[Rfam]
RNA sequence: UGCCAGAGAUGCUUUAGAAAAGAAAUACCACCCCUCGACAACUGGUUCUACCAAGAUUCGAGGAUGAGGUGGCAGUCUUAUACACUAUGGUAAGCCUGUAAUUAAAUAGUAUAAGCAAUGUUUAAUUAUAUUACUAGCCUUAGAUGAAAAUUAGUUGCCUACAGUGCUACCCCUUUCGGAGUAAUUGAAAGAUCGCUUUGACGAGCCCAGUGUGGAAGAGCCGUCUGGAGUGCCUGUAGUGUUAUAAUUAGUAAUUGUAGAUAGGUGUAGUUUUGAUAGGGAUACAC
Numbered sequence: 001u002g003c004c005a006g007a008g009a010u011g012c013u014u015u016a017g018a019a020a021a022g023a024a025a026u027a028c029c030a031c032c033c034c035u036c037g038a039c040a041a042c043u044g045g046u047u048c049u050a051c052c053a054a055g056a057u058u059c060g061a062g063g064a065u066g067a068g069g070u071g072g073c074a075g076u077c078u079u080a081u082a083c084a085c086u087a088u089g090g091u092a093a094g095c096c097u098g099u100a101a102u103u104a105a106a107u108a109g110u111a112u113a114a115g116c117a118a119u120g121u122u123u124a125a126u127u128a129u130a131u132u133a134c135u136a137g138c139c140u141u142a143g144a145u146g147a148a149a150a151u152u153a154g155u156u157g158c159c160u161a162c163a164g165u166g167c168u169a170c171c172c173c174u175u176u177c178g179g180a181g182u183a184a185u186u187g188a189a190a191g192a193u194c195g196c197u198u199u200g201a202c203g204a205g206c207c208c209a210g211u212g213u214g215g216a217a218g219a220g221c222c223g224u225c226u227g228g229a230g231u232g233c234c235u236g237u238a239g240u241g242u243u244a245u246a247a248u249u250a251g252u253a254a255u256u257g258u259a260g261a262u263a264g265g266u267g268u269a270g271u272u273u274u275g276a277u278a279g280g281g282a283u284a285c286a287c
Stems, first nucleotide, its partner, number of pairs: 077094005098129011133271004143256003150248004161237004169231002172228002177223003196205002206215002